The family of this 60-nucleotide RNA from Acidobacteriaceae bacterium KBS 83 is "nadA riboswitch". Taxonomically the source falls in Acidobacteriaceae (Bacteria, Acidobacteriota, Terriglobia, Terriglobales). The base pairs follow the family's consensus structure, which is taken from published work.

Nucleotides: 060
Base pairs, nucleotide, nucleotide: 001060002059003058004057005056006055007054013046014044016053017052019050020049021048022047023045025042026041027040028039029038030037031036
Number, partner (000 for none) and nucleotide at each position: 001060g002059g003058u004057u005056g006055c007054a008000a009000c010000a011000u012000c013046c014044c015000c016053g017052c018000a019050g020049g021048c022047u023045g024000g025042g026041c027040g028039a029038g030037g031036c032000a033000g034000a035000c036031g037030c038029u039028u040027c041026g042025c043000a044014g045023u046013g047022a048021g049020c050019c051000g052017g053016c054007u055006g056005c057004a058003a059002c060001c